This 105-nucleotide RNA from Nyssa sinensis belongs to the Rfam family "Small nucleolar RNA snoR99".
RNA sequence: UUGCUUCAGGGAUGAUUAAGUCCCUGAUAUGCAAUUCUCAUCCAUCCUUUUCACUUUGUCAGCAAUGUAUCUGUGUCUUGCUGAUCAUUUGUGGAUGGAACAUUU
Number, nucleotide and partner (000 for none) at each position: 001u000002u000003g000004c000005u000006u000007c000008a000009g000010g000011g000012a000013u000014g000015a000016u000017u000018a000019a000020g000021u000022c000023c000024c000025u000026g000027a000028u000029a000030u000031g000032c000033a000034a000035u000036u000037c000038u000039c000040a000041u099042c098043c097044a096045u095046c094047c000048u000049u000050u000051u000052c000053a000054c000055u000056u000057u000058g085059u084060c083061a082062g081063c080064a079065a078066u000067g000068u000069a000070u000071c000072u000073g000074u000075g000076u000077c000078u065079u064080g063081c062082u061083g060084a059085u058086c000087a000088u000089u000090u000091g000092u000093g000094g046095a045096u044097g043098g042099a041100a000101c000102a000103u000104u000105u000
Pairs were carried over by alignment from the consensus structure, which was predicted with WAR. Taxonomically the source falls in Nyssa (Eukaryota, Tracheophyta, Mesangiospermae, Pentapetalae). It scores 88 bits against the family's covariance model. For this family Rfam cites "Experimental RNomics: identification of 140 candidates for small non-messenger RNAs in the plant Arabidopsis thaliana" (Marker et al., Curr Biol, 2002). Rfam 15.1 lists 733 matches to the family in 222 species.